[Rfam]
RNA: SAM riboswitch aptamer (S box leader)
RNA sequence: UGCUUAUCAAGAGAGGUGGAGGGACUGGCCCGACGAAACCCAGCAACCAGUGAGAAGAAGUAAUAUCUUUUUUUCGCAAGGUGCUAAUUCCUGCAAAGAUUCAUUACUGAAUGCUUUGGGAGAUAAGGA
Numbered sequence: 001u002g003c004u005u006a007u008c009a010a011g012a013g014a015g016g017u018g019g020a021g022g023g024a025c026u027g028g029c030c031c032g033a034c035g036a037a038a039c040c041c042a043g044c045a046a047c048c049a050g051u052g053a054g055a056a057g058a059a060g061u062a063a064u065a066u067c068u069u070u071u072u073u074u075c076g077c078a079a080g081g082u083g084c085u086a087a088u089u090c091c092u093g094c095a096a097a098g099a100u101u102c103a104u105u106a107c108u109g110a111a112u113g114c115u116u117u118g119g120g121a122g123a124u125a126a127g128g129a
Stems, first nucleotide, its partner, number of pairs: 001129001003127006013041001015040003021031003025093001027091002042085004047081002050077010089121001094118005